[Rfam]
RNA sequence: AACCACACUAUCAAUGAAUGGAUUCACUCGCGAGAUGAUGUGGUUGUUUCACAUCCUCGUCAUCCUAUUACCAGCCAUCACACAAAAUUAACAGAAUACCACGUCCCCAUCCUAGAUGGAACAACCACAUCAUCCCACGCGGGAAUUCAUUCAUCGAUAGUGUGGUU
Numbered sequence: 001a002a003c004c005a006c007a008c009u010a011u012c013a014a015u016g017a018a019u020g021g022a023u024u025c026a027c028u029c030g031c032g033a034g035a036u037g038a039u040g041u042g043g044u045u046g047u048u049u050c051a052c053a054u055c056c057u058c059g060u061c062a063u064c065c066u067a068u069u070a071c072c073a074g075c076c077a078u079c080a081c082a083c084a085a086a087a088u089u090a091a092c093a094g095a096a097u098a099c100c101a102c103g104u105c106c107c108c109a110u111c112c113u114a115g116a117u118g119g120a121a122c123a124a125c126c127a128c129a130u131c132a133u134c135c136c137a138c139g140c141g142g143g144a145a146u147u148c149a150u151u152c153a154u155c156g157a158u159a160g161u162g163u164g165g166u167u
Base pairs, nucleotide, nucleotide: 001167002166003165004164005163006162007161009159010158011157012156014154015153017151018150019149021147022146023145024144025143027141030138032136035133036132037131038130039129041127042126043125044124045123046122047121048120051117054114059105062097063096065094066093068091069090070089077088078087